[Rfam]
RNA sequence: AUUCAAGGAACUCUGGCUAAGAACGCCGCGUCCUGCGGCAACGCCUGAGUGACCAACAUCCUGUUGG
Numbered sequence: 001a002u003u004c005a006a007g008g009a010a011c012u013c014u015g016g017c018u019a020a021g022a023a024c025g026c027c028g029c030g031u032c033c034u035g036c037g038g039c040a041a042c043g044c045c046u047g048a049g050u051g052a053c054c055a056a057c058a059u060c061c062u063g064u065u066g067g
Stems, first nucleotide, its partner, number of pairs: 011049003015045003025039005053067005
Notes
A member of the RNA family "Bacillaceae-1 RNA" from Psychrobacillus insolitus, 67 nucleotides long. The family's RNA type in Rfam is small RNA. Taxonomically the source falls in Psychrobacillus (Bacteria, Bacillota, Bacilli, Bacillaceae).